[Rfam]
RNA sequence: AAGCCAGCCAAUGAGCCUGCUUAGGUGAGCAUGCUCUGCAGAAACUUAUACAAAGCUGGCAAUAGUAAAGCCGUAUUACAAGACUUAAAGACAUUGAAGUCAGCAAGAUCCCUGAGAAUGACUUAUAAGA
Numbered sequence: 001a002a003g004c005c006a007g008c009c010a011a012u013g014a015g016c017c018u019g020c021u022u023a024g025g026u027g028a029g030c031a032u033g034c035u036c037u038g039c040a041g042a043a044a045c046u047u048a049u050a051c052a053a054a055g056c057u058g059g060c061a062a063u064a065g066u067a068a069a070g071c072c073g074u075a076u077u078a079c080a081a082g083a084c085u086u087a088a089a090g091a092c093a094u095u096g097a098a099g100u101c102a103g104c105a106a107g108a109u110c111c112c113u114g115a116g117a118a119u120g121a122c123u124u125a126u127a128a129g130a
Base pairs, nucleotide, nucleotide: 003060004059005058006057007056017041018040019039020038070122072120073119082109084107085106086105090101091100092099
RNA: Small nucleolar RNA SNORA33